Rfam assigns this 125-nucleotide part of an RNA from a Candidatus Aenigmatarchaeota archaeon to the family "Archaeal small subunit ribosomal RNA". The family is grouped with related families in Rfam's "SSU clan". Pairs were carried over by alignment from the consensus structure, which is taken from published work. Gene Ontology terms of the family: structural constituent of ribosome and ribosome.

RNA sequence: CUGCCCGUCAAGCCAUCCGAGUGAAGUUUUGGCGAGGUCUUCCUUUCGGGGAGGAUCGAACCACAGCUUUGCAAGGAGGGCUAAGUCGUAAAUUAACGAGAUGGGCAAUUUGAGGGACAAAACGU
Numbered sequence: 001c002u003g004c005c006c007g008u009c010a011a012g013c014c015a016u017c018c019g020a021g022u023g024a025a026g027u028u029u030u031g032g033c034g035a036g037g038u039c040u041u042c043c044u045u046u047c048g049g050g051g052a053g054g055a056u057c058g059a060a061c062c063a064c065a066g067c068u069u070u071g072c073a074a075g076g077a078g079g080g081c082u083a084a085g086u087c088g089u090a091a092a093u094u095a096a097c098g099a100g101a102u103g104g105g106c107a108a109u110u111u112g113a114g115g116g117a118c119a120a121a122a123c124g125u
Base pairs, nucleotide, nucleotide: 001100003097006088007087009085011082012081013080014079016077017076018075021072022071023070024069025068026067027066028065030063031062032061036057037056038055039054040053041052042051043050044049102119103118104109